Overview:
Rfam assigns this 57-nucleotide RNA sequence from Raineyella fluvialis to the family "msiK RNA". The family has 120 seed sequences and 1,374 matches in Rfam 15.1. Pairs were carried over by alignment from the consensus structure, which is taken from published work. The source organism's lineage runs through Bacteria, Bacillati, Actinomycetota, Propionibacteriaceae and Raineyella.
RNA sequence: CGGUAAGUCUUCCAGUCGGAUCGUCGGGCACGUUCCUGCCCGUGGAUAGGAGAACCU
Numbered sequence: 001c002g003g004u005a006a007g008u009c010u011u012c013c014a015g016u017c018g019g020a021u022c023g024u025c026g027g028g029c030a031c032g033u034u035c036c037u038g039c040c041c042g043u044g045g046a047u048a049g050g051a052g053a054a055c056c057u
Stems, first nucleotide, its partner, number of pairs: 009049002011046004025042006